[Rfam]
RNA sequence: AGAAUAUAAGAACCCGACUCUUAACUUUUAACUGAAAAAGUUAAGUGUCGGCUCUUAAAACUCUAUUUUUCAGUUAAAAGUUAAGAGUCGGGUUCUUAUAUUCU
Number, nucleotide and partner (000 for none) at each position: 001a104002g103003a102004a101005u100006a099007u098008a097009a096010g095011a094012a093013c092014c091015c090016g089017a088018c087019u086020c085021u084022u083023a082024a081025c080026u079027u078028u077029u076030a075031a074032c073033u072034g071035a070036a069037a068038a067039a066040g000041u058042u057043a056044a055045g054046u000047g000048u000049c000050g000051g000052c000053u000054c045055u044056u043057a042058a041059a000060a000061c000062u000063c000064u000065a000066u039067u038068u037069u036070u035071c034072a033073g032074u031075u030076a029077a028078a027079a026080g025081u024082u023083a022084a021085g020086a019087g018088u017089c016090g015091g014092g013093u012094u011095c010096u009097u008098a007099u006100a005101u004102u003103c002104u001
The record is a 104-nucleotide sequence from Brassica oleracea, which matches "MIR9563 microRNA precursor family" in Rfam. The base pairs follow the family's consensus structure, which was predicted with RNAalifold. The family has 2 seed sequences and 5,832 matches in Rfam 15.1. Lineage of the source: Eukaryota > Viridiplantae > Magnoliopsida > Mesangiospermae > Brassica oleracea.